[Rfam]
RNA sequence: GGCUGGUCCAAAGGUAGUGAGUUAUCUCAAUCGAUUGUUCACAGUCAAUCACAGAUUGAACUCCUCGUUCUACUCCUUCCCUCUUUCUCACUACUAAACUUAACUAGUCUAAA
Numbered sequence: 001g002g003c004u005g006g007u008c009c010a011a012a013g014g015u016a017g018u019g020a021g022u023u024a025u026c027u028c029a030a031u032c033g034a035u036u037g038u039u040c041a042c043a044g045u046c047a048a049u050c051a052c053a054g055a056u057u058g059a060a061c062u063c064c065u066c067g068u069u070c071u072a073c074u075c076c077u078u079c080c081c082u083c084u085u086u087c088u089c090a091c092u093a094c095u096a097a098a099c100u101u102a103a104c105u106a107g108u109c110u111a112a113a
Stems, first nucleotide, its partner, number of pairs: 001109007010101002015096001016092006044074001047071001
A member of the RNA family "Y RNA" from Macaca nemestrina, 113 nucleotides long. For this family Rfam cites "Conserved features of Y RNAs: a comparison of experimentally derived secondary structures" (Teunissen et al., Nucleic Acids Res, 2000).